[Rfam]
RNA: Nuclear RNase P
Organism: Adineta steineri
RNA sequence: GUAGGUUGAAGCUUACUCACAGGGAUUACAAACGAGUGCUAUUUAAUGUCACUCAUAUAUAUCUAUCCUUGGGAAGGUCUGAGAUAAAGACCAAUCGAGACUCUAGCAGGGUUCCAUGCGUUUAACGUAUGGCAGGUGAUCAGAAAGCUUCCGAGUGAAGUGAUUUCUCAAUGAUAAUAUUCGAGUACAAGAUCAACAUUCGUUGAGAUGCUCUUAUCAUUGAGAAAGUUGUGAAAGCCUGUGGUCAGCAACAUGAAGUUAAAUGAGUGAGAUGAUCAUUUCGAUGAUCAGAACUCAAUUCAGACUACUCUCUGUCUAC
Numbered sequence: 001g002u003a004g005g006u007u008g009a010a011g012c013u014u015a016c017u018c019a020c021a022g023g024g025a026u027u028a029c030a031a032a033c034g035a036g037u038g039c040u041a042u043u044u045a046a047u048g049u050c051a052c053u054c055a056u057a058u059a060u061a062u063c064u065a066u067c068c069u070u071g072g073g074a075a076g077g078u079c080u081g082a083g084a085u086a087a088a089g090a091c092c093a094a095u096c097g098a099g100a101c102u103c104u105a106g107c108a109g110g111g112u113u114c115c116a117u118g119c120g121u122u123u124a125a126c127g128u129a130u131g132g133c134a135g136g137u138g139a140u141c142a143g144a145a146a147g148c149u150u151c152c153g154a155g156u157g158a159a160g161u162g163a164u165u166u167c168u169c170a171a172u173g174a175u176a177a178u179a180u181u182c183g184a185g186u187a188c189a190a191g192a193u194c195a196a197c198a199u200u201c202g203u204u205g206a207g208a209u210g211c212u213c214u215u216a217u218c219a220u221u222g223a224g225a226a227a228g229u230u231g232u233g234a235a236a237g238c239c240u241g242u243g244g245u246c247a248g249c250a251a252c253a254u255g256a257a258g259u260u261a262a263a264u265g266a267g268u269g270a271g272a273u274g275a276u277c278a279u280u281u282c283g284a285u286g287a288u289c290a291g292a293a294c295u296c297a298a299u300u301c302a303g304a305c306u307a308c309u310c311u312c313u314g315u316c317u318a319c
Stems, first nucleotide, its partner, number of pairs: 001319004008312002012271007021070005034054005039048001079303005089246004099113005115131006132242006148228003273290006